[Rfam]
This 119-nucleotide RNA from Ruminococcus flavefaciens belongs to the Rfam family "PyrR binding site".
It is annotated as a cis-regulatory element.
The match comes from Rfam's covariance-model search (56 bits).
Rfam 15.1 lists 1,498 matches to the family in 930 species.
The source organism's lineage runs through Bacteria, Clostridia, Oscillospiraceae, Ruminococcus and Ruminococcus flavefaciens.
The base pairs follow the family's consensus structure, which is taken from published work.
Nucleotides: 119
Stems, first nucleotide, its partner, number of pairs: 005035004013030006052083003057078004062073004086114001088112011
Number, partner (000 for none) and nucleotide at each position: 001000c002000u003000a004000c005035c006034c007033u008032u009000u010000a011000a012000u013030c014029c015028g016027a017026u018025c019000c020000c021000g022000u023000g024000a025018g026017g027016u028015c029014g030013g031000c032008a033007a034006g035005g036000u037000g038000c039000g040000u041000u042000u043000a044000u045000a046000a047000a048000u049000a050000c051000u052083g053082u054081a055000a056000c057078u058077a059076u060075a061000a062073c063072u064071a065070u066000a067000a068000c069000c070065a071064u072063a073062g074000c075060u076059a077058u078057a079000a080000c081054u082053a083052u084000a085000a086114g087000u088112a089111u090110g091109c092108u093107c094106c095105c096104u097103g098102c099000c100000g101000c102098g103097c104096g105095g106094g107093g108092a109091g110090c111089a112088u113000u114086u115000u116000u117000u118000g119000u